RNA sequence: CGUGUGGUGCUGUGCAAAUUUCGAAUUGGCAUGGAGAACGGCACGGCCUUUUAUGAGGU
Numbered sequence: 001c002g003u004g005u006g007g008u009g010c011u012g013u014g015c016a017a018a019u020u021u022c023g024a025a026u027u028g029g030c031a032u033g034g035a036g037a038a039c040g041g042c043a044c045g046g047c048c049u050u051u052u053a054u055g056a057g058g059u
Stems, first nucleotide, its partner, number of pairs: 001045005007039002010034006
Source information:
Rfam assigns this 59-nucleotide RNA from Pantoea sp. Nvir to the family "L31-Gammaproteobacteria ribosomal protein leader". It is annotated as a cis-regulatory leader. On this family, see Eckert and Weinberg, BMC Microbiol 2020: "Discovery of 20 novel ribosomal leader candidates in bacteria and archaea". Taxonomically the source falls in Pantoea (Bacteria, Pseudomonadota, Gammaproteobacteria, Erwiniaceae). Pairs were carried over by alignment from the consensus structure, which is taken from published work.